The record is a 75-nucleotide sequence from Hipposideros armiger, which matches "mir-296 microRNA precursor family" in Rfam. The family's consensus secondary structure was predicted with RNAalifold.
RNA sequence: AGGACUCUUCCGGAGGCACCCCCAUCCUGUUGUGCUUGAUUCAGAGGGUUGGGUGGAGGCUCUCCUGAAGGCUCU
Dot-bracket structure: .....(((((..(((((..(((((((((.(((.........))))))))..)).))..)).)))..)))))....